[Rfam]
RNA sequence: CACGUCAGCGCGAUGUCAGGGUACGUGACAGGACAUCGCGUCCACGUCAACAAGUCGCGCUGACGUGGACGCGAUGUCCUGUCACGUACCCUGACAUCGCGCUGACGUGG
Numbered sequence: 001c002a003c004g005u006c007a008g009c010g011c012g013a014u015g016u017c018a019g020g021g022u023a024c025g026u027g028a029c030a031g032g033a034c035a036u037c038g039c040g041u042c043c044a045c046g047u048c049a050a051c052a053a054g055u056c057g058c059g060c061u062g063a064c065g066u067g068g069a070c071g072c073g074a075u076g077u078c079c080u081g082u083c084a085c086g087u088a089c090c091c092u093g094a095c096a097u098c099g100c101g102c103u104g105a106c107g108u109g110g
Base pairs, nucleotide, nucleotide: 001109002108003107004106005105006104007103008102009101010100011099012098013097014096015095016094019091020090021089022088023087025085026084027083028082029081030080031079032078033077034076035075036074037073038072039071040070042068043067044066045065046064047063048062049061
Shown here is a 110-nucleotide sequence from Gossypium raimondii, a member of the family "MIR7486 microRNA precursor family". The match comes from Rfam's covariance-model search (70 bits). The organism belongs to Gossypium, within Eukaryota.